The record is a 145-nucleotide sequence from Castanea mollissima, which matches "Small nucleolar RNA snoR136" in Rfam. Rfam classes the family as an H/ACA-box small nucleolar RNA.
[Rfam]
RNA sequence: AGGGCUUCAUAUUCUCUCGAUAGCUUAAUUUGGCUUACACCAAAUUGUGUGUGUGCAGCUAUGUUUAAUUGAAGCCUAGAUAUACGUUCUCCUCGCUAUCCGGUGCAACCUUUAUGUUGUAUUUGGACGUUGGAGAACUACAUUC
Numbered sequence: 001a002g003g004g005c006u007u008c009a010u011a012u013u014c015u016c017u018c019g020a021u022a023g024c025u026u027a028a029u030u031u032g033g034c035u036u037a038c039a040c041c042a043a044a045u046u047g048u049g050u051g052u053g054u055g056c057a058g059c060u061a062u063g064u065u066u067a068a069u070u071g072a073a074g075c076c077u078a079g080a081u082a083u084a085c086g087u088u089c090u091c092c093u094c095g096c097u098a099u100c101c102g103g104u105g106c107a108a109c110c111u112u113u114a115u116g117u118u119g120u121a122u123u124u125g126g127a128c129g130u131u132g133g134a135g136a137a138c139u140a141c142a143u144u145c
Base pairs, nucleotide, nucleotide: 003076004075005074008071009070011069012068013067023064024063031061032060033059034058035057036055039054040053086138087137088136089135090134091133092132094129095128099127100126101125102124103123105117106116107115